RNA sequence: CGAUAGUACCUUACUACUUGGAUACCCGUAGUAAUUCUAGAGCUAAUACAUGCAUCAAUACCCAACUGCUUGUCGGGCGGGUAGCAUUUAUUAGAUUGAAACCAAUGCAGUCUUCGGGCUGGUAUUGUGUUGAGUCAUAAUAACUGUGCGGAUCGCGCUUUUGCGCGAUAAAUCGAUUGAGUUUCUGCCCUAUCAGCUUUGGAUGGUAGGAUAUGGGCCUACCAUGGCAUUAACGGGUAACGGGGAAUUAGGGUUUGAUUCCGGAGAGGGAGCCUUAGAAACGGCUACCACAUCCAAGGAAGGCAGCAGGCGCGUAAAUUACCCAAUCCUGACACAGGGAGGUAGUGACAAUAAAUAACAAUGCUCUGGCUCUUCGAGUCGGGCAAUUGGAAUGAGAACAAUUUAAAUCCCUUAACGAGGAUCAAUUGGAGGGCAAGUCUGGUGCCAGCAGCCGCGGUAAUUCCAGCUCCAAUAGCGUAUAUUAAAGUUGUUG
Numbered sequence: 001c002g003a004u005a006g007u008a009c010c011u012u013a014c015u016a017c018u019u020g021g022a023u024a025c026c027c028g029u030a031g032u033a034a035u036u037c038u039a040g041a042g043c044u045a046a047u048a049c050a051u052g053c054a055u056c057a058a059u060a061c062c063c064a065a066c067u068g069c070u071u072g073u074c075g076g077g078c079g080g081g082u083a084g085c086a087u088u089u090a091u092u093a094g095a096u097u098g099a100a101a102c103c104a105a106u107g108c109a110g111u112c113u114u115c116g117g118g119c120u121g122g123u124a125u126u127g128u129g130u131u132g133a134g135u136c137a138u139a140a141u142a143a144c145u146g147u148g149c150g151g152a153u154c155g156c157g158c159u160u161u162u163g164c165g166c167g168a169u170a171a172a173u174c175g176a177u178u179g180a181g182u183u184u185c186u187g188c189c190c191u192a193u194c195a196g197c198u199u200u201g202g203a204u205g206g207u208a209g210g211a212u213a214u215g216g217g218c219c220u221a222c223c224a225u226g227g228c229a230u231u232a233a234c235g236g237g238u239a240a241c242g243g244g245g246a247a248u249u250a251g252g253g254u255u256u257g258a259u260u261c262c263g264g265a266g267a268g269g270g271a272g273c274c275u276u277a278g279a280a281a282c283g284g285c286u287a288c289c290a291c292a293u294c295c296a297a298g299g300a301a302g303g304c305a306g307c308a309g310g311c312g313c314g315u316a317a318a319u320u321a322c323c324c325a326a327u328c329c330u331g332a333c334a335c336a337g338g339g340a341g342g343u344a345g346u347g348a349c350a351a352u353a354a355a356u357a358a359c360a361a362u363g364c365u366c367u368g369g370c371u372c373u374u375c376g377a378g379u380c381g382g383g384c385a386a387u388u389g390g391a392a393u394g395a396g397a398a399c400a401a402u403u404u405a406a407a408u409c410c411c412u413u414a415a416c417g418a419g420g421a422u423c424a425a426u427u428g429g430a431g432g433g434c435a436a437g438u439c440u441g442g443u444g445c446c447a448g449c450a451g452c453c454g455c456g457g458u459a460a461u462u463c464c465a466g467c468u469c470c471a472a473u474a475g476c477g478u479a480u481a482u483u484a485a486a487g488u489u490g491u492u493g
Stems, first nucleotide, its partner, number of pairs: 001181001004180001010175001015170001019050002026042001029039003189237003196228003203225008241263004245256004268289002271286003291302001293300002319344001321343003327339005367418001426472006439466004448455002
Microsporidia small subunit ribosomal RNA: a 493-nucleotide part of an RNA from Phytophthora infestans. Rfam 15.1 lists 1,035 matches to the family in 436 species. Gene Ontology terms of the family: structural constituent of ribosome and ribosome. Its Rfam clan is "SSU clan". Taxonomically the source falls in Phytophthora infestans (Eukaryota, Sar, Peronosporomycetes, Peronosporaceae). The literature on the family includes a 2001 paper in Science by Yusupov et al., "Crystal structure of the ribosome at 5.5 A resolution".